The record is a 111-nucleotide RNA from Sphingobium wenxiniae, which matches "TPP riboswitch aptamer (THI element)" in Rfam. The source organism's lineage runs through Bacteria, Pseudomonadati, Pseudomonadota, Sphingobium and Sphingobium wenxiniae. Rfam describes the family as follows. Vitamin B(1) in its active form thiamin pyrophosphate (TPP) is an essential coenzyme that is synthesised by coupling of pyrimidine and thiazole moieties in bacteria. The previously detected thiamin-regulatory element, thi box was extended, resulting in a new, highly conserved RNA secondary structure, the THI element, which is widely distributed in eubacteria and also occurs in some archaea. Analysis of operon structures identified a large number of new candidate thiamin-regulated genes, mostly transporters, in various prokaryotic organisms.
[Rfam]
RNA sequence: CCAGUAUCCCCGGGGGACCGCUCACAGGCGGUUGAGAGGCGGCUGACGUGGCCGCGACCCGCUGAACCUGAUCCGGAUAAGACCGGCGUAGGGAGGGAACGGCUUGUCAUU
Dot-bracket structure: ......((((((((..(((((......)))))......(((((((...)))))))..)))).....((((..((((......))))..))))..)))).............
Numbered sequence: 001c002c003a004g005u006a007u008c009c010c011c012g013g014g015g016g017a018c019c020g021c022u023c024a025c026a027g028g029c030g031g032u033u034g035a036g037a038g039g040c041g042g043c044u045g046a047c048g049u050g051g052c053c054g055c056g057a058c059c060c061g062c063u064g065a066a067c068c069u070g071a072u073c074c075g076g077a078u079a080a081g082a083c084c085g086g087c088g089u090a091g092g093g094a095g096g097g098a099a100c101g102g103c104u105u106g107u108c109a110u111u
Stems, first nucleotide, its partner, number of pairs: 007098004011061004017032005039055007067092004073086004